[Rfam]
RNA sequence: UAUCAUUGUUUUUCUGAUUCGCUUGGUACAGGUCGGGAACUGCUUCGCCGAAAAAAAAAAAAAAAAAAGUCGGUGAAUAUUAAGUCCCGCCUUGUAUCAACUGAAUUAGAAACCACUAUGAAA
Numbered sequence: 001u002a003u004c005a006u007u008g009u010u011u012u013u014c015u016g017a018u019u020c021g022c023u024u025g026g027u028a029c030a031g032g033u034c035g036g037g038a039a040c041u042g043c044u045u046c047g048c049c050g051a052a053a054a055a056a057a058a059a060a061a062a063a064a065a066a067a068a069g070u071c072g073g074u075g076a077a078u079a080u081u082a083a084g085u086c087c088c089g090c091c092u093u094g095u096a097u098c099a100a101c102u103g104a105a106u107u108a109g110a111a112a113c114c115a116c117u118a119u120g121a122a123a
Stems, first nucleotide, its partner, number of pairs: 013110002017106004023100010034089005041082001

The family of this 123-nucleotide RNA from Artemisia annua is "MIR168 microRNA precursor family". A reference for the family is Lu et al. (2005), "Novel and mechanical stress-responsive MicroRNAs in Populus trichocarpa that are absent from Arabidopsis", Plant Cell. The match comes from Rfam's covariance-model search (73 bits). The family has 10 seed sequences and 518 matches in Rfam 15.1. Lineage of the source: Eukaryota > Embryophyta > Spermatophyta > Mesangiospermae > Artemisia.